Background
The family of this 88-nucleotide sequence from Dioscorea zingiberensis is "mir-160 microRNA precursor family". Pairs were carried over by alignment from the consensus structure, which was predicted with PFOLD.
RNA sequence: UUGUGCCUGGCUCCCUGUAUGCCACACAUAUAGUCCAAUCUAUUCUCAGCUUGGCUACUGUGAGUGGCGUGCGAGGAGCCAAGCAUUC
Dot-bracket structure: ..((((.(((((((.(((((((((..(((..............................)))..))))))))).))))))).))))..
Numbered sequence: 001u002u003g004u005g006c007c008u009g010g011c012u013c014c015c016u017g018u019a020u021g022c023c024a025c026a027c028a029u030a031u032a033g034u035c036c037a038a039u040c041u042a043u044u045c046u047c048a049g050c051u052u053g054g055c056u057a058c059u060g061u062g063a064g065u066g067g068c069g070u071g072c073g074a075g076g077a078g079c080c081a082a083g084c085a086u087u088c
Stems, first nucleotide, its partner, number of pairs: 003086004008081007016073009027062003
For this family Rfam cites "Prediction of plant microRNA targets" (Rhoades et al., Cell, 2002).
The family has 7 seed sequences and 1,502 matches in Rfam 15.1.